A member of the RNA family "S4-Clostridia ribosomal protein leader" from Eubacterium sp. ER2, 101 nucleotides long. Pairs were carried over by alignment from the consensus structure, which is taken from published work.
[Rfam]
RNA sequence: GAAAGGGCGUGAAUACCGACACGCCUGGGCUGGGAUAUCGGAACAUUACUGCGUUCCGGUAGGGAACAGGAAAAAAUCCAGUGCCCGCAGCCUCAAUUUAG
Dot-bracket structure: ....(((((((........)))))))((((((.......................................................))))))........